[Rfam]
RNA sequence: AGCAAUAGAAAGGCUUUAUGGGCGGUCGGCUAAAUCUCCCGGAAGGGAGGUGACGCUACAUGGAGAUAAAAGACGCUUUGGCGCUUAUGAUUGACUUCGGUGUGUUUAUUAUUCUAUUACUGACGUUGAUCUUUACUGUCGUCAUUGCUCUUUUAAACCAUAAGAAAUAGACCGCCCCACGCGAAGGUAGCGGUCUAUUUGUCGUGAUACCUUUGUAUUCAAGCCAACCGCUCUUAAAGCGGCUAUUGCUCGGGAGUCGUGUUACCAGCACGGCUC
Numbered sequence: 001a002g003c004a005a006u007a008g009a010a011a012g013g014c015u016u017u018a019u020g021g022g023c024g025g026u027c028g029g030c031u032a033a034a035u036c037u038c039c040c041g042g043a044a045g046g047g048a049g050g051u052g053a054c055g056c057u058a059c060a061u062g063g064a065g066a067u068a069a070a071a072g073a074c075g076c077u078u079u080g081g082c083g084c085u086u087a088u089g090a091u092u093g094a095c096u097u098c099g100g101u102g103u104g105u106u107u108a109u110u111a112u113u114c115u116a117u118u119a120c121u122g123a124c125g126u127u128g129a130u131c132u133u134u135a136c137u138g139u140c141g142u143c144a145u146u147g148c149u150c151u152u153u154u155a156a157a158c159c160a161u162a163a164g165a166a167a168u169a170g171a172c173c174g175c176c177c178c179a180c181g182c183g184a185a186g187g188u189a190g191c192g193g194u195c196u197a198u199u200u201g202u203c204g205u206g207a208u209a210c211c212u213u214u215g216u217a218u219u220c221a222a223g224c225c226a227a228c229c230g231c232u233c234u235u236a237a238a239g240c241g242g243c244u245a246u247u248g249c250u251c252g253g254g255a256g257u258c259g260u261g262u263u264a265c266c267a268g269c270a271c272g273g274c275u276c
Stems, first nucleotide, its partner, number of pairs: 001250005007244002012225005020177003024172001026170001031053001033051001036049005062151004068145001076089001099143004183210001228242004254276010

Shown here is a 276-nucleotide RNA from Paenibacillus popilliae, a member of the family "BsrG".
A search with the family's covariance model found it, with a score of 56 bits.
From the family's description: bsrE, bsrG and bsrH pair through intermolecular interactions with antisense sRNAs.
It is annotated as a small RNA.
The base pairs follow the family's consensus structure, which was predicted with WAR.
A reference for the family is Jahn and Brantl (2013), "One antitoxin--two functions: SR4 controls toxin mRNA decay and translation", Nucleic Acids Res.